[Rfam]
RNA sequence: CCCUGACAGUCGCAUGGUGUGACUGACAUAACCCACGACAGGAGAUACACAUG
Numbered sequence: 001c002c003c004u005g006a007c008a009g010u011c012g013c014a015u016g017g018u019g020u021g022a023c024u025g026a027c028a029u030a031a032c033c034c035a036c037g038a039c040a041g042g043a044g045a046u047a048c049a050c051a052u053g
Stems, first nucleotide, its partner, number of pairs: 002042004007025005
Dot-bracket structure: .((((.(((((.........))))).............))))...........
The family of this 53-nucleotide sequence is "Mu-gpT-DE RNA". Rfam classes the family as a small RNA. Pairs were carried over by alignment from the consensus structure, which is taken from published work.